[Rfam]
RNA: c-di-GMP-I riboswitch aptamer
RNA sequence: AUUCGAGAAAGGCAAACUCUCUGAAAAGAGAGGACGCAAAGUUAUGGGUCUGUCGGAGAUACUCCUACGAUCGCCAAACUGCCGAU
Dot-bracket structure: ...........((...((((((....))))))...))..((((.((((((....((((...))))...)))..)))))))......